The family of this 574-nucleotide part of an RNA from Olsenella sp. oral taxon 809 is "Bacterial large subunit ribosomal RNA". The family's consensus secondary structure is taken from published work. The match comes from Rfam's covariance-model search (2810 bits).

RNA sequence: UGGUAAGGGCACACGGUGGAUGCCUUGGCACAGGAAGCCGACGAAGGACGCGACAAGCUGCGAUAAGCCACGGUUAGGGGCACAUACCCGCUCGACCCGUGGAUCUCCGAAUGGGCGAACCCGCUGGGGGCCAUACCCCAGCGCCCCGCGCUGAACACAUAGGCGCGGCGGAGGCAACCCGGGGAACUGAAACAUCUAAGUACCCGGAGGAAGAGAAAUCAAACGAGAUUCCCCCAGUAGUGGCGAGCGAACGGGGACAUAGGCCAAACCGGCGGCCGCGCAAGCGCCGCCGGGGUUGUAGGGCCACUCACAGCGCAGUAAGAAACCGCCGCGGGAGCGGAACGGCCUGGGAAGGCCGGCGGAACAGGGUUAGAGCCCCGUACGCGAACCCGCCGCGGCUGCCGAGUGGAUCCUGAGUACUGCCGGACACGUGAAACCCGGUGGGAAGCAGGGGGGACCACCCUCCAAGCCUAAAUACUCUCCUGUGACCGAUAGUGGACGAGUACCGUGAGGGAAAGGUGAAAAGCACCCCGGGAGGGGAGUGAAAUAGUACCUGAAACCGUGUGCCUACAAG
Numbered sequence: 001u002g003g004u005a006a007g008g009g010c011a012c013a014c015g016g017u018g019g020a021u022g023c024c025u026u027g028g029c030a031c032a033g034g035a036a037g038c039c040g041a042c043g044a045a046g047g048a049c050g051c052g053a054c055a056a057g058c059u060g061c062g063a064u065a066a067g068c069c070a071c072g073g074u075u076a077g078g079g080g081c082a083c084a085u086a087c088c089c090g091c092u093c094g095a096c097c098c099g100u101g102g103a104u105c106u107c108c109g110a111a112u113g114g115g116c117g118a119a120c121c122c123g124c125u126g127g128g129g130g131c132c133a134u135a136c137c138c139c140a141g142c143g144c145c146c147c148g149c150g151c152u153g154a155a156c157a158c159a160u161a162g163g164c165g166c167g168g169c170g171g172a173g174g175c176a177a178c179c180c181g182g183g184g185a186a187c188u189g190a191a192a193c194a195u196c197u198a199a200g201u202a203c204c205c206g207g208a209g210g211a212a213g214a215g216a217a218a219u220c221a222a223a224c225g226a227g228a229u230u231c232c233c234c235c236a237g238u239a240g241u242g243g244c245g246a247g248c249g250a251a252c253g254g255g256g257a258c259a260u261a262g263g264c265c266a267a268a269c270c271g272g273c274g275g276c277c278g279c280g281c282a283a284g285c286g287c288c289g290c291c292g293g294g295g296u297u298g299u300a301g302g303g304c305c306a307c308u309c310a311c312a313g314c315g316c317a318g319u320a321a322g323a324a325a326c327c328g329c330c331g332c333g334g335g336a337g338c339g340g341a342a343c344g345g346c347c348u349g350g351g352a353a354g355g356c357c358g359g360c361g362g363a364a365c366a367g368g369g370u371u372a373g374a375g376c377c378c379c380g381u382a383c384g385c386g387a388a389c390c391c392g393c394c395g396c397g398g399c400u401g402c403c404g405a406g407u408g409g410a411u412c413c414u415g416a417g418u419a420c421u422g423c424c425g426g427a428c429a430c431g432u433g434a435a436a437c438c439c440g441g442u443g444g445g446a447a448g449c450a451g452g453g454g455g456g457a458c459c460a461c462c463c464u465c466c467a468a469g470c471c472u473a474a475a476u477a478c479u480c481u482c483c484u485g486u487g488a489c490c491g492a493u494a495g496u497g498g499a500c501g502a503g504u505a506c507c508g509u510g511a512g513g514g515a516a517a518g519g520u521g522a523a524a525a526g527c528a529c530c531c532c533g534g535g536a537g538g539g540g541a542g543u544g545a546a547a548u549a550g551u552a553c554c555u556g557a558a559a560c561c562g563u564g565u566g567c568c569u570a571c572a573a574g
Base pairs, nucleotide, nucleotide: 007569008568009567010566011565012564013563014562015561016560022554023519024518027490028489029487030486031485032484033483034482035481036479037478038174039173046108047107048106049062050061051060068102069101070100071099072098073097077089078088079087113122114121115120123142124141125140126139127138128137129136144171145170146168147167148166149165150164151163152162178209179207180206181205182204183203189196190195219226220225229475230257231256232255233254234253240248241247261472262471263470264469269293270292271291272290273289274288275287300414301413302412305408306407307406308405309404324400326398327397328396329395331393332392333391334390335389337385338384339383343358344357345356346355347354361365367379368378369377420444421443422442423441424440425439426438451466452465453464454463455462506513507512529540530539531538532537